[Rfam]
The record is a 140-nucleotide sequence from Dipodomys ordii, which matches "Small nucleolar RNA SNORA29" in Rfam. Its Rfam clan is "SNORA20 clan". ACA29 is a member of the H/ACA class of snoRNA that guide the sites of modification of uridines to pseudouridines. Rfam 15.1 lists 960 matches to the family in 621 species. Lineage of the source: Eukaryota > Dipnotetrapodomorpha > Boreoeutheria > Heteromyidae > Dipodomys.

RNA sequence: UUUCCCAUUUGACUACCACAUUUUCUCCUAAAAAUAGAUUUUAGUGGCUAUGCUUAUAGGAUACAUUAAAGUUGCCAUGAUCUGAAAGGGAAGGGUUCUGAAGUGUCCUCCUUCUAUAUGAAAUGGCUGAGCAGAAGAAG
Numbered sequence: 001u002u003u004c005c006c007a008u009u010u011g012a013c014u015a016c017c018a019c020a021u022u023u024u025c026u027c028c029u030a031a032a033a034a035u036a037g038a039u040u041u042u043a044g045u046g047g048c049u050a051u052g053c054u055u056a057u058a059g060g061a062u063a064c065a066u067u068a069a070a071g072u073u074g075c076c077a078u079g080a081u082c083u084g085a086a087a088g089g090g091a092a093g094g095g096u097u098c099u100g101a102a103g104u105g106u107c108c109u110c111c112u113u114c115u116a117u118a119u120g121a122a123a124u125g126g127c128u129g130a131g132c133a134g135a136a137g138a139a140g
Stems, first nucleotide, its partner, number of pairs: 004060002007057001016047004074127004092115004
Dot-bracket structure: ...((.(........((((........................)))).........).)).............((((..............((((................))))........)))).............